[Rfam]
RNA sequence: GGGCUGUGAUGAGAUCUCAAAAAAUGUCAUGCGCCACUCUGAUAUUAGUGAUGUGAAAUUUCUCAUACCCAUAUACCUUUCUGAGCUU
Numbered sequence: 001g002g003g004c005u006g007u008g009a010u011g012a013g014a015u016c017u018c019a020a021a022a023a024a025u026g027u028c029a030u031g032c033g034c035c036a037c038u039c040u041g042a043u044a045u046u047a048g049u050g051a052u053g054u055g056a057a058a059u060u061u062c063u064c065a066u067a068c069c070c071a072u073a074u075a076c077c078u079u080u081c082u083g084a085g086c087u088u
Stems, first nucleotide, its partner, number of pairs: 001088004
The family of this 88-nucleotide RNA from Solanum tuberosum is "Small nucleolar RNA Z221/R21b". Rfam 15.1 lists 588 matches to the family in 222 species. By type it is a C/D-box small nucleolar RNA. Taxonomically the source falls in Solanum (Eukaryota, Tracheophyta, Spermatophyta, Pentapetalae).